[Rfam]
RNA sequence: GCUUUCUUUCCCCAGACCUGUUGGUGUCAUUACAGAGAAACCUUCAGGCUCUUCUGUGGGAAAGAAC
Numbered sequence: 001g002c003u004u005u006c007u008u009u010c011c012c013c014a015g016a017c018c019u020g021u022u023g024g025u026g027u028c029a030u031u032a033c034a035g036a037g038a039a040a041c042c043u044u045c046a047g048g049c050u051c052u053u054c055u056g057u058g059g060g061a062a063a064g065a066a067c
Base pairs, nucleotide, nucleotide: 001067003065004064008061009060010059011058013056014055015054016053019046020045023042024041025040026033027032
About this RNA: The record is a 67-nucleotide sequence from Phrynocephalus forsythii, which matches "MAT2A 3'UTR stem loop A" in Rfam. For this family Rfam cites "New families of human regulatory RNA structures identified by comparative analysis of vertebrate genomes" (Parker et al., Genome Res, 2011). It is annotated as a cis-regulatory element. Lineage of the source: Eukaryota > Chordata > Sauropsida > Bifurcata > Phrynocephalus. The family's consensus secondary structure is taken from published work. A search with the family's covariance model found it, with a score of 59 bits.